[Rfam]
RNA sequence: GCUUGAAUGAUGAUUUCUAUUAAGUCGGAUACCCCUUCACUCUGUAUGAGUGAGAAAAUGUAACUGACAAGC
Numbered sequence: 001g002c003u004u005g006a007a008u009g010a011u012g013a014u015u016u017c018u019a020u021u022a023a024g025u026c027g028g029a030u031a032c033c034c035c036u037u038c039a040c041u042c043u044g045u046a047u048g049a050g051u052g053a054g055a056a057a058a059u060g061u062a063a064c065u066g067a068c069a070a071g072c
Base pairs, nucleotide, nucleotide: 001072002071003070004069005068

Annotation:
Rfam assigns this 72-nucleotide RNA sequence from Eleutherodactylus coqui to the family "Small nucleolar RNA SNORD101". Lineage of the source: Eukaryota > Dipnotetrapodomorpha > Anura > Eleutherodactylus > Eleutherodactylus. The family's RNA type in Rfam is C/D-box small nucleolar RNA. Pairs were carried over by alignment from the consensus structure, which was predicted with PFOLD. The family is grouped with related families in Rfam's "SNORD101 clan".